[Rfam]
RNA: Mammalian CPEB3 ribozyme
RNA sequence: AGAGGUCACAAGUUCAAGGCCAUAGCGGAAGCUGUCAUGAAGCAGCCAUGUUAGAUUUCAAUAAAUCUGUGAAUUUGGCU
Numbered sequence: 001a002g003a004g005g006u007c008a009c010a011a012g013u014u015c016a017a018g019g020c021c022a023u024a025g026c027g028g029a030a031g032c033u034g035u036c037a038u039g040a041a042g043c044a045g046c047c048a049u050g051u052u053a054g055a056u057u058u059c060a061a062u063a064a065a066u067c068u069g070u071g072a073a074u075u076u077g078g079c080u
Stems, first nucleotide, its partner, number of pairs: 013048001018047003024080003028076003031043003052069007